[Rfam]
RNA sequence: AGUUGGCAAAGAUGAUGAAUCAAUUAGAUGUGUGAAUGGAGCUUAAUCUAUAUUGAACUUAACUUUUUGAGGCAUAUUUAAUCGUCUGAUUUGCUUGUG
Numbered sequence: 001a002g003u004u005g006g007c008a009a010a011g012a013u014g015a016u017g018a019a020u021c022a023a024u025u026a027g028a029u030g031u032g033u034g035a036a037u038g039g040a041g042c043u044u045a046a047u048c049u050a051u052a053u054u055g056a057a058c059u060u061a062a063c064u065u066u067u068u069g070a071g072g073c074a075u076a077u078u079u080a081a082u083c084g085u086c087u088g089a090u091u092u093g094c095u096u097g098u099g
Stems, first nucleotide, its partner, number of pairs: 002098002005095006

Source information
Small nucleolar RNA Z266: a 99-nucleotide RNA sequence from Populus tomentosa. Rfam classes the family as a C/D-box small nucleolar RNA. The match comes from Rfam's covariance-model search (73 bits).